[Rfam]
RNA: Burkholderia RNA 11
Organism: Thauera sinica
RNA sequence: GCAACCUCGCCUUCACGCGCGGCAACCGCACGGUGUUCCUGUCCAUCCUCGGCGUGUCCUGGUUCUGGUUCUACGGUGCGGUCUUCCUGUCGCAGUUCCCCGCCUACGCCAAGGACGUGCUC
Numbered sequence: 001g002c003a004a005c006c007u008c009g010c011c012u013u014c015a016c017g018c019g020c021g022g023c024a025a026c027c028g029c030a031c032g033g034u035g036u037u038c039c040u041g042u043c044c045a046u047c048c049u050c051g052g053c054g055u056g057u058c059c060u061g062g063u064u065c066u067g068g069u070u071c072u073a074c075g076g077u078g079c080g081g082u083c084u085u086c087c088u089g090u091c092g093c094a095g096u097u098c099c100c101c102g103c104c105u106a107c108g109c110c111a112a113g114g115a116c117g118u119g120c121u122c
Stems, first nucleotide, its partner, number of pairs: 017042003021038002025034002051121005057115004062110001067099002071095002074092005080087002